[Rfam]
RNA sequence: CCGUCAUCCCCGGGGGAGCGCCGACCCGCGCUUGAGAGGGGGGCAGGAGCCCCCGACCCGCUGAACCUGAUCCGGUUGACACCGGCGUAGGGAGGGAGCGGUUCUUCACC
Numbered sequence: 001c002c003g004u005c006a007u008c009c010c011c012g013g014g015g016g017a018g019c020g021c022c023g024a025c026c027c028g029c030g031c032u033u034g035a036g037a038g039g040g041g042g043g044c045a046g047g048a049g050c051c052c053c054c055g056a057c058c059c060g061c062u063g064a065a066c067c068u069g070a071u072c073c074g075g076u077u078g079a080c081a082c083c084g085g086c087g088u089a090g091g092g093a094g095g096g097a098g099c100g101g102u103u104c105u106u107c108a109c110c
Stems, first nucleotide, its partner, number of pairs: 007097004011060004016054001017032005039053004066091004072085004
Overview:
The family of this 110-nucleotide RNA sequence from Sphingomonas hengshuiensis is "TPP riboswitch aptamer (THI element)". It scores 69 bits against the family's covariance model.